[Rfam]
RNA sequence: GCAGUCAAAUGUGCAUAGUAUAUUAUCUAUGUCUAGUGAUAAAGUCCAUUUGCGUUCUGCACAUAGACUAUAUUGCUCACAUACAAUCUGCAGCCAAAGAGCAACAUGAGAUCAUAGUACUGGUCUAAUGAUGUUGAAAGACAAGUUUACCAUUGUCCAGCCUCCAAAUUCUCAAACAUAA
Dot-bracket structure: ............(((..............(((.(.((((((..(((.(..(((.....)))..).)))..))))).).).))).....)))...............(((((........((((.(.((((.((((....)))..).....))))).)))).........))))).......
Shown here is a 181-nucleotide RNA from Thamnophis sirtalis, a member of the family "Small nucleolar RNA SNORA23". Rfam describes the family as follows. The members of this family belong to the H/ACA class of snoRNAs which are thought to guide the sites of modification of uridines to pseudouridines. It scores 129 bits against the family's covariance model. A reference for the family is Huttenhofer et al. (2001), "RNomics: an experimental approach that identifies 201 candidates for novel, small, non-messenger RNAs in mouse", EMBO J. The family's consensus secondary structure was predicted with RNAalifold.